[Rfam]
Nucleotides: 087
Base pairs, nucleotide, nucleotide: 002086006082007081008080010078011077012076013075016072018070020068021067022066023065024064025063029061030060038059039058040057041056044053045052047051
Number, partner (000 for none) and nucleotide at each position: 001000g002086g003000a004000u005000c006082c007081a008080u009000a010078g011077g012076g013075a014000g015000a016072g017000a018070u019000c020068u021067c022066a023065a024064u025063c026000c027000a028000a029061c030060c031000u032000u033000a034000g035000g036000a037000a038059a039058a040057g041056a042000a043000a044053c045052c046000u047051g048000c049000c050000a051047u052045g053044g054000a055000g056041u057040c058039u059038u060030g061029g062000a063025g064024a065023u066022u067021g068020g069000c070018g071000a072016c073000c074000a075013u076012c077011c078010c079000a080008a081007u082006g083000a084000c085000a086002u087000a

Rfam assigns this 87-nucleotide RNA sequence from Equus asinus to the family "mir-9014 microRNA precursor family". The match comes from Rfam's covariance-model search (71 bits). The organism belongs to Equus, within Eukaryota. Pairs were carried over by alignment from the consensus structure, which was predicted with RNAalifold. Its family is annotated with miRNA-mediated post-transcriptional gene silencing and RISC complex in the Gene Ontology.